Annotation: The family of this 300-nucleotide RNA from Trichechus manatus is "Metazoan signal recognition particle RNA". Rfam classes the family as a non-coding RNA gene. The signal recognition particle (SRP) is a universally conserved ribonucleoprotein. It is involved in the co-translational targeting of proteins to membranes. The eukaryotic SRP consists of a 300-nucleotide 7S RNA and six proteins: SRPs 72, 68, 54, 19, 14, and 9. The match comes from Rfam's covariance-model search (192 bits). Pairs were carried over by alignment from the consensus structure, which is taken from published work. Gene Ontology terms of the family: SRP-dependent cotranslational protein targeting to membrane, signal sequence recognition and signal recognition particle, endoplasmic reticulum targeting. On this family, see Regalia et al., Nucleic Acids Res 2002: "Prediction of signal recognition particle RNA genes". Taxonomically the source falls in Trichechus manatus (Eukaryota, Deuterostomia, Vertebrata, Dipnotetrapodomorpha).
RNA sequence: GCCGGGUGUGGUGGUGCGUUCCUGGAGUCCCACCUGCUUGGCAGGCUGAGGCUGGAGGAUCGCUUGAACCUAGGAGUUCUGGGCUGUAGGGUGCUAUGCUGAUCUGGUGUCUGCACCAAGUUCAGCAUCAAUAUGGUGACCUCCUGGGAGCAGGCGACCGUAAGGUUGCCUAAGGAGGGGUGAACUGGCCCAGGUCAGAAAUGGAGAAGGUCAAAACUCCUGUGCUGAUCCGUAGUGGGAUCCCGUCUAUCAACAACCUCUGCACUCCAGCCUGGGCAACAUAGUGAGACCCUGCUUAAA
Numbered sequence: 001g002c003c004g005g006g007u008g009u010g011g012u013g014g015u016g017c018g019u020u021c022c023u024g025g026a027g028u029c030c031c032a033c034c035u036g037c038u039u040g041g042c043a044g045g046c047u048g049a050g051g052c053u054g055g056a057g058g059a060u061c062g063c064u065u066g067a068a069c070c071u072a073g074g075a076g077u078u079c080u081g082g083g084c085u086g087u088a089g090g091g092u093g094c095u096a097u098g099c100u101g102a103u104c105u106g107g108u109g110u111c112u113g114c115a116c117c118a119a120g121u122u123c124a125g126c127a128u129c130a131a132u133a134u135g136g137u138g139a140c141c142u143c144c145u146g147g148g149a150g151c152a153g154g155c156g157a158c159c160g161u162a163a164g165g166u167u168g169c170c171u172a173a174g175g176a177g178g179g180g181u182g183a184a185c186u187g188g189c190c191c192a193g194g195u196c197a198g199a200a201a202u203g204g205a206g207a208a209g210g211u212c213a214a215a216a217c218u219c220c221u222g223u224g225c226u227g228a229u230c231c232g233u234a235g236u237g238g239g240a241u242c243c244c245g246u247c248u249a250u251c252a253a254c255a256a257c258c259u260c261u262g263c264a265c266u267c268c269a270g271c272c273u274g275g276g277c278a279a280c281a282u283a284g285u286g287a288g289a290c291c292c293u294g295c296u297u298a299a300a
Stems, first nucleotide, its partner, number of pairs: 001046003004023003008019003028043001029041002049297004054292002060287005069276006079270005085264007093257001095255001097253001106247004111239002114237003118233001120230001122228007129168004134163001136161003141156001143154004169175002176221006186213005195204003